[Rfam]
RNA sequence: UCAUCCAUCAUCAUAUAGCUUAGCCUUUCAGGUAUUUGCUGGGAGGUCUAUUGAAUCCUUCUAGCGGCGCAGACACACUCUAAACCCCCGGAAGGCAUCUUUCGGGGGUUUUUC
Numbered sequence: 001u002c003a004u005c006c007a008u009c010a011u012c013a014u015a016u017a018g019c020u021u022a023g024c025c026u027u028u029c030a031g032g033u034a035u036u037u038g039c040u041g042g043g044a045g046g047u048c049u050a051u052u053g054a055a056u057c058c059u060u061c062u063a064g065c066g067g068c069g070c071a072g073a074c075a076c077a078c079u080c081u082a083a084a085c086c087c088c089c090g091g092a093a094g095g096c097a098u099c100u101u102u103c104g105g106g107g108g109u110u111u112u113u114c
Base pairs, nucleotide, nucleotide: 006038007037010033011032012031018029039064040063041062042061043060044059045058046057082111083110084109085108086107087106088105089104090103091102092101093100094099
A member of the RNA family "Histidine operon leader" from Paraglaciecola psychrophila, 114 nucleotides long. Rfam describes the family as follows. At least 6 amino acid operons are known to be regulated by attenuation. In each a leader sequence of 150-200 bp is found upstream of the first gene in the operon. NCBI's taxonomy places the organism under Bacteria, Pseudomonadota, Alteromonadales, Alteromonadaceae, Paraglaciecola psychrophila. By type it is a cis-regulatory leader. It scores 57 bits against the family's covariance model.